[Rfam]
RNA sequence: CAUUCUUCUGAUCAUCUGCAGAUCAGCUAUUAGAAAAGAGAGAUCAGCUACGUCCUUGGGACCUGAUCAACCUAAUACAGGAGCUACUGAUUUCAACUACUUCGCCUAACUCUCUCCGAAACAAUGAAAUAUACCAGUUAUUUCUUAGCUUUUCAGCUGUGUGUGAUU
Numbered sequence: 001c002a003u004u005c006u007u008c009u010g011a012u013c014a015u016c017u018g019c020a021g022a023u024c025a026g027c028u029a030u031u032a033g034a035a036a037a038g039a040g041a042g043a044u045c046a047g048c049u050a051c052g053u054c055c056u057u058g059g060g061a062c063c064u065g066a067u068c069a070a071c072c073u074a075a076u077a078c079a080g081g082a083g084c085u086a087c088u089g090a091u092u093u094c095a096a097c098u099a100c101u102u103c104g105c106c107u108a109a110c111u112c113u114c115u116c117c118g119a120a121a122c123a124a125u126g127a128a129a130u131a132u133a134c135c136a137g138u139u140a141u142u143u144c145u146u147a148g149c150u151u152u153u154c155a156g157c158u159g160u161g162u163g164u165g166a167u168u
Stems, first nucleotide, its partner, number of pairs: 009069006015119002018116001020113003026105002029102001032101002035098001041093007052084002056081002059078001120168002124164003129143001131141003147158004
RNA: Interferon gamma 5' UTR regulatory element
Organism: Balaenoptera musculus